Shown here is a 121-nucleotide RNA from Granulicatella adiacens, a member of the family "Ribosomal protein L10 leader". Rfam classes the family as a cis-regulatory leader. Rfam links the family to the GO term regulation of gene expression. Taxonomically the source falls in Granulicatella adiacens (Bacteria, Bacillota, Lactobacillales, Carnobacteriaceae). Rfam describes the family as follows. This family is a putative r-protein leader autoregulatory structure found in B. subtilis and other low-GC Gram-positive bacteria. It is located in the 5' untranslated regions of mRNAs encoding ribosomal proteins L10 and L12 (rplJ-rplL).
[Rfam]
RNA sequence: AAUAAAAGUUGAAUGCGACCGAAGACAGUAGGGGGCGCUAGCCUUAAUAUCCUACCGAGGGAGAACAAGUUGAUCUUAUUUCUCUGUGUCUUUGUGGGCAUAGAGAUUUUUUUAUGCCCUA
Numbered sequence: 001a002a003u004a005a006a007a008g009u010u011g012a013a014u015g016c017g018a019c020c021g022a023a024g025a026c027a028g029u030a031g032g033g034g035g036c037g038c039u040a041g042c043c044u045u046a047a048u049a050u051c052c053u054a055c056c057g058a059g060g061g062a063g064a065a066c067a068a069g070u071u072g073a074u075c076u077u078a079u080u081u082c083u084c085u086g087u088g089u090c091u092u093u094g095u096g097g098g099c100a101u102a103g104a105g106a107u108u109u110u111u112u113u114a115u116g117c118c119c120u121a
Stems, first nucleotide, its partner, number of pairs: 028055006034043003081106010